[Rfam]
RNA sequence: AAGCGUGAUAGAGGUGCGGAAAACAUUAGUAAAAUAUUUUUUUGGGAAUCGAAAAUAUUUGAAAGGGUAAUCCACCGAGGGAUUUUGAGUCUGCCCAAGGCUUAAAGUUGCCGGGACGAUUGGAGAAUAUCUGUCGUACUGCCAUAUUUUUAUGGAGAGCUGUCGUGGUU
Numbered sequence: 001a002a003g004c005g006u007g008a009u010a011g012a013g014g015u016g017c018g019g020a021a022a023a024c025a026u027u028a029g030u031a032a033a034a035u036a037u038u039u040u041u042u043u044g045g046g047a048a049u050c051g052a053a054a055a056u057a058u059u060u061g062a063a064a065g066g067g068u069a070a071u072c073c074a075c076c077g078a079g080g081g082a083u084u085u086u087g088a089g090u091c092u093g094c095c096c097a098a099g100g101c102u103u104a105a106a107g108u109u110g111c112c113g114g115g116a117c118g119a120u121u122g123g124a125g126a127a128u129a130u131c132u133g134u135c136g137u138a139c140u141g142c143c144a145u146a147u148u149u150u151u152a153u154g155g156a157g158a159g160c161u162g163u164c165g166u167g168g169u170u
Stems, first nucleotide, its partner, number of pairs: 006165006016075001018073003023068002032060008079112002082109001083107008113140002116137005122131002142155005